[Rfam]
RNA sequence: CCUGCCACUGUCCUAGUCCGUAAAAGGGGCUUAAAGUGGAGGCUUAUAGUGACCCGGCUUUUGGAAGCAGGGCGGUCCCAACCUGAUGGCUAACUCUGUGCCAAAAGGCCUGGAACAAAC
Numbered sequence: 001c002c003u004g005c006c007a008c009u010g011u012c013c014u015a016g017u018c019c020g021u022a023a024a025a026g027g028g029g030c031u032u033a034a035a036g037u038g039g040a041g042g043c044u045u046a047u048a049g050u051g052a053c054c055c056g057g058c059u060u061u062u063g064g065a066a067g068c069a070g071g072g073c074g075g076u077c078c079c080a081a082c083c084u085g086a087u088g089g090c091u092a093a094c095u096c097u098g099u100g101c102c103a104a105a106a107g108g109c110c111u112g113g114a115a116c117a118a119a120c
Base pairs, nucleotide, nucleotide: 005039006038007037008036009035017028018027019026054113055112056111057110058108059107060106061105063102064101068098069097070096071095072094077089078088
Small nucleolar RNA SNORA65: a 120-nucleotide sequence from Sinocyclocheilus anshuiensis. For this family Rfam cites "RNomics: an experimental approach that identifies 201 candidates for novel, small, non-messenger RNAs in mouse" (Huttenhofer et al., EMBO J, 2001). Rfam links the family to the GO terms RNA processing and nucleolus. Rfam 15.1 lists 1,089 matches to the family in 619 species. By type it is an H/ACA-box small nucleolar RNA. The source organism's lineage runs through Eukaryota, Osteoglossocephalai, Ostariophysi, Cypriniphysae and Sinocyclocheilus. Rfam's curators write: U65 belongs to the H/ACA class of snoRNAs which are thought to guide the sites of modification of uridines to pseudouridines.